[Rfam]
RNA sequence: GUUUUCGGAUAAUCGCGGUCUACAUAGGUAGGCUGAGGAAAGUCCAUGCUCACACAAGCUGCGAUGCUUGUAGUGUUCGUGCCUAGUGAAACCAUAAGCUAGGGUACCUAUACGGUAACGGCAGGAAAAAGAGCUAAGGCUUUGCUAUGCUUCAGUAUCCUUGAAAGUGCCACAGUGACGAAGCAAAUCAAGAAAUUGAUUUGGUGGAACGCGGUAAACCCCUCGAGUGAGCAACCCAAACAAUGGUCGGGGCGCUUUUUGGAACGGAAAUGAACGGAACAAAGAGGCAAGAAAUUGCAGAUAGAUGAUUAUCCAAAUUAUUUUGCUCCCUGUAAAAUAAUUGGACAAAACAUGGCUUAUAGAA
Numbered sequence: 001g002u003u004u005u006c007g008g009a010u011a012a013u014c015g016c017g018g019u020c021u022a023c024a025u026a027g028g029u030a031g032g033c034u035g036a037g038g039a040a041a042g043u044c045c046a047u048g049c050u051c052a053c054a055c056a057a058g059c060u061g062c063g064a065u066g067c068u069u070g071u072a073g074u075g076u077u078c079g080u081g082c083c084u085a086g087u088g089a090a091a092c093c094a095u096a097a098g099c100u101a102g103g104g105u106a107c108c109u110a111u112a113c114g115g116u117a118a119c120g121g122c123a124g125g126a127a128a129a130a131g132a133g134c135u136a137a138g139g140c141u142u143u144g145c146u147a148u149g150c151u152u153c154a155g156u157a158u159c160c161u162u163g164a165a166a167g168u169g170c171c172a173c174a175g176u177g178a179c180g181a182a183g184c185a186a187a188u189c190a191a192g193a194a195a196u197u198g199a200u201u202u203g204g205u206g207g208a209a210c211g212c213g214g215u216a217a218a219c220c221c222c223u224c225g226a227g228u229g230a231g232c233a234a235c236c237c238a239a240a241c242a243a244u245g246g247u248c249g250g251g252g253c254g255c256u257u258u259u260u261g262g263a264a265c266g267g268a269a270a271u272g273a274a275c276g277g278a279a280c281a282a283a284g285a286g287g288c289a290a291g292a293a294a295u296u297g298c299a300g301a302u303a304g305a306u307g308a309u310u311a312u313c314c315a316a317a318u319u320a321u322u323u324u325g326c327u328c329c330c331u332g333u334a335a336a337a338u339a340a341u342u343g344g345a346c347a348a349a350a351c352a353u354g355g356c357u358u359a360u361a362g363a364a
Stems, first nucleotide, its partner, number of pairs: 004364003007360001008313007016035006040358003044355005049231005054071006077226003081222001082103006104119001105117004120221002123161004131152004138146003167219002169215003184203008235251003255286007287298004316342011
Overview: This 364-nucleotide RNA sequence from Enterococcus italicus belongs to the Rfam family "Bacterial RNase P class B". Rfam describes the family as follows. Ribonuclease P (RNase P) is a ubiquitous endoribonuclease, found in archaea, bacteria and eukarya as well as chloroplasts and mitochondria. Its best characterised activity is the generation of mature 5'-ends of tRNAs by cleaving the 5'-leader elements of precursor-tRNAs. Cellular RNase Ps are ribonucleoproteins. Clan: RNaseP clan. The family's RNA type in Rfam is ribozyme. NCBI's taxonomy places the organism under Bacteria, Bacillati, Bacillota, Bacilli, Enterococcus italicus. Rfam links the family to the GO terms tRNA processing, ribonuclease P activity and dimeric ribonuclease P complex.